[Rfam]
RNA sequence: CAAAUCCUCUACCCGGUAAGGUGUAGCGAACCGCCGGGAGCCCGAGUCAUGGGCGGCUGCUCGCGAGGGCAGGGGCUAAACGUUGACAGGGGAACAUACAGGCUCGGUAUUGAGCUCGGAAAUCAAGGUUGGGAAUGCUGACCGCGUUAUCUGAUCGGGAAAGCAAAACUGCCAGCUGCGCUAGACGCGAGCAGCGGGCAGAUUCCCCGGAGUCGUAGACCC
Numbered sequence: 001c002a003a004a005u006c007c008u009c010u011a012c013c014c015g016g017u018a019a020g021g022u023g024u025a026g027c028g029a030a031c032c033g034c035c036g037g038g039a040g041c042c043c044g045a046g047u048c049a050u051g052g053g054c055g056g057c058u059g060c061u062c063g064c065g066a067g068g069g070c071a072g073g074g075g076c077u078a079a080a081c082g083u084u085g086a087c088a089g090g091g092g093a094a095c096a097u098a099c100a101g102g103c104u105c106g107g108u109a110u111u112g113a114g115c116u117c118g119g120a121a122a123u124c125a126a127g128g129u130u131g132g133g134a135a136u137g138c139u140g141a142c143c144g145c146g147u148u149a150u151c152u153g154a155u156c157g158g159g160a161a162a163g164c165a166a167a168a169c170u171g172c173c174a175g176c177u178g179c180g181c182u183a184g185a186c187g188c189g190a191g192c193a194g195c196g197g198g199c200a201g202a203u204u205c206c207c208c209g210g211a212g213u214c215g216u217a218g219a220c221c222c
Stems, first nucleotide, its partner, number of pairs: 012038005020032003024190001026188002041091003046087004050082002052077003057072006112214001114213004119208001131207006137164003142158003169201005175195005

This 222-nucleotide sequence from Ectothiorhodospira marina belongs to the Rfam family "Group II catalytic intron D1-D4-6". It scores 168 bits against the family's covariance model. From the family's description: Group II introns are found in rRNA, tRNA and mRNA of organelles in fungi, plants and protists, and also in mRNA in bacteria. The pairing is the family consensus, mapped onto this sequence.